[Rfam]
RNA sequence: AAAAUAGAGCGCUAGGGUUCCGGUCACCUCCAAAUGAAAGGUGACGACUGGUCCGAGAGCACUCGACCUCUCAGCUGAGCGUUAGGGCUCUGCGAUGGGUUACACGGCGGGACAAAAGCCCGGGAGAC
Numbered sequence: 001a002a003a004a005u006a007g008a009g010c011g012c013u014a015g016g017g018u019u020c021c022g023g024u025c026a027c028c029u030c031c032a033a034a035u036g037a038a039a040g041g042u043g044a045c046g047a048c049u050g051g052u053c054c055g056a057g058a059g060c061a062c063u064c065g066a067c068c069u070c071u072c073a074g075c076u077g078a079g080c081g082u083u084a085g086g087g088c089u090c091u092g093c094g095a096u097g098g099g100u101u102a103c104a105c106g107g108c109g110g111g112a113c114a115a116a117a118g119c120c121c122g123g124g125a126g127a128c
Base pairs, nucleotide, nucleotide: 007064008063009062011060012059015054016053020051021050022048023045024044025043026042027041028040065101066100067099068098069097071095072094103123105126109121110120111119
RNA: Guanidine-I riboswitch aptamer
Organism: Marinobacterium lacunae